[Rfam]
RNA sequence: UAAAUUCUUCGGGGCGGGGUGUGAUUCCCCACCGGCGGUUAUGCGGCCUUUGUGCCGAUAAGCCCGCGAGCGAUUUGUCAGUCGCAGGAUUCUGGUGAGAGCCCAGAGCCGACGGUAUAGUCCGGAUGGAAGAAGAUAUGG
Numbered sequence: 001u002a003a004a005u006u007c008u009u010c011g012g013g014g015c016g017g018g019g020u021g022u023g024a025u026u027c028c029c030c031a032c033c034g035g036c037g038g039u040u041a042u043g044c045g046g047c048c049u050u051u052g053u054g055c056c057g058a059u060a061a062g063c064c065c066g067c068g069a070g071c072g073a074u075u076u077g078u079c080a081g082u083c084g085c086a087g088g089a090u091u092c093u094g095g096u097g098a099g100a101g102c103c104c105a106g107a108g109c110c111g112a113c114g115g116u117a118u119a120g121u122c123c124g125g126a127u128g129g130a131a132g133a134a135g136a137u138a139u140g141g
Base pairs, nucleotide, nucleotide: 003139006136007135008134009133010132017029018028019027031121032120033111034110035067036066037065038064062109063108070085071084072083091107092106093105094104095103113124114123115122
Dot-bracket structure: ..(..(((((......(((.......))).[[((((((.......................[[))))..(((..........))).....(((((.......)))))]])).(((....]]))).......)))))..)..
Record summary: Shown here is a 141-nucleotide RNA from Ruminococcaceae bacterium BL-4, a member of the family "FMN riboswitch aptamer (RFN element)". Taxonomically the source falls in Oscillospiraceae (Bacteria, Bacillati, Bacillota, Clostridia). The base pairs follow the family's consensus structure, which is taken from published work. It scores 105 bits against the family's covariance model.